[Rfam]
RNA sequence: GUGGUGUGUCUGCCUGUCUACACUUGCUGUGCAGACCUUCUGCUCCUGUACAGCAGGCACAGACAGGCAGACAGAUGGCAGCCCCACU
Numbered sequence: 001g002u003g004g005u006g007u008g009u010c011u012g013c014c015u016g017u018c019u020a021c022a023c024u025u026g027c028u029g030u031g032c033a034g035a036c037c038u039u040c041u042g043c044u045c046c047u048g049u050a051c052a053g054c055a056g057g058c059a060c061a062g063a064c065a066g067g068c069a070g071a072c073a074g075a076u077g078g079c080a081g082c083c084c085c086a087c088u
Base pairs, nucleotide, nucleotide: 007073008072011069012068013067014066015065016064017063018062019061023057025055026054027053028052029051030050032048033047034046
The family of this 88-nucleotide RNA from Tetraodon nigroviridis is "mir-214 microRNA precursor family". Gene Ontology terms of the family: RISC complex and miRNA-mediated post-transcriptional gene silencing.